[Rfam]
RNA sequence: UUCUUAUCCAGAGAGGUGGAGGGACUGGCCCUUUGAAGCCUCGGCAACAGACUUAUAAAGAGAACUGUGCCAAUUCCAGAUGCUCGAAAGCAUGCAGAUAGGAA
Numbered sequence: 001u002u003c004u005u006a007u008c009c010a011g012a013g014a015g016g017u018g019g020a021g022g023g024a025c026u027g028g029c030c031c032u033u034u035g036a037a038g039c040c041u042c043g044g045c046a047a048c049a050g051a052c053u054u055a056u057a058a059a060g061a062g063a064a065c066u067g068u069g070c071c072a073a074u075u076c077c078a079g080a081u082g083c084u085c086g087a088a089a090g091c092a093u094g095c096a097g098a099u100a101g102g103a104a
Stems, first nucleotide, its partner, number of pairs: 001104008013042005021031003025079004043071004048067002052062002075096001080093005
The family of this 104-nucleotide RNA from Virgibacillus salarius is "SAM riboswitch aptamer (S box leader)". Rfam describes the family as follows. The SAM riboswitch is found upstream of a number of genes which code for proteins involved in methionine or cysteine biosynthesis in Gram-positive bacteria. The match comes from Rfam's covariance-model search (86 bits). The base pairs follow the family's consensus structure, which is taken from published work.